[Rfam]
RNA sequence: AACAUCAGUCACCAGGCCACUUUGAGAGUUUCUCACUACUUUCACCUUUCUAUCAACCAAAAUGUCUCCUUGCUCUUGCAACUGCUGCAGCGGCAACUGCUCUAGCUGCUCCUGCUCCACCUGCAGUGUUAGUGUCCCUCGUUGAC
Numbered sequence: 001a002a003c004a005u006c007a008g009u010c011a012c013c014a015g016g017c018c019a020c021u022u023u024g025a026g027a028g029u030u031u032c033u034c035a036c037u038a039c040u041u042u043c044a045c046c047u048u049u050c051u052a053u054c055a056a057c058c059a060a061a062a063u064g065u066c067u068c069c070u071u072g073c074u075c076u077u078g079c080a081a082c083u084g085c086u087g088c089a090g091c092g093g094c095a096a097c098u099g100c101u102c103u104a105g106c107u108g109c110u111c112c113u114g115c116u117c118c119a120c121c122u123g124c125a126g127u128g129u130u131a132g133u134g135u136c137c138c139u140c141g142u143u144g145a146c
Base pairs, nucleotide, nucleotide: 071095072094073093074092078088079087080086099124100123108115109114

The family of this 146-nucleotide RNA sequence from Aspergillus leporis is "A. fumigatus sRNA Afu_254". Lineage of the source: Eukaryota > Dikarya > leotiomyceta > Aspergillus > Aspergillus subgen. Circumdati. A search with the family's covariance model found it, with a score of 69 bits. For this family Rfam cites "Small ncRNA transcriptome analysis from Aspergillus fumigatus suggests a novel mechanism for regulation of protein synthesis" (Jochl et al., Nucleic Acids Res, 2008). The family's RNA type in Rfam is small RNA.